RNA sequence: UUAUGGCAAGAAUGAUGAAAAAAAUUAGAUGUGCGAGAGGUGAAUUCCUUUUUGAGCUUAACAUCGAGGCUUAUUGAUAUUCUGACUUGCUUCAG
Numbered sequence: 001u002u003a004u005g006g007c008a009a010g011a012a013u014g015a016u017g018a019a020a021a022a023a024a025u026u027a028g029a030u031g032u033g034c035g036a037g038a039g040g041u042g043a044a045u046u047c048c049u050u051u052u053u054g055a056g057c058u059u060a061a062c063a064u065c066g067a068g069g070c071u072u073a074u075u076g077a078u079a080u081u082c083u084g085a086c087u088u089g090c091u092u093c094a095g
Stems, first nucleotide, its partner, number of pairs: 001095002005091006

This 95-nucleotide RNA from Nicotiana attenuata belongs to the Rfam family "Small nucleolar RNA Z266".
It scores 53 bits against the family's covariance model.
Its family is annotated with nucleolus and RNA processing in the Gene Ontology.
For this family Rfam cites "The high diversity of snoRNAs in plants: identification and comparative study of 120 snoRNA genes from Oryza sativa" (Chen et al., Nucleic Acids Res, 2003).
Lineage of the source: Eukaryota > Mesangiospermae > asterids > lamiids > Nicotiana.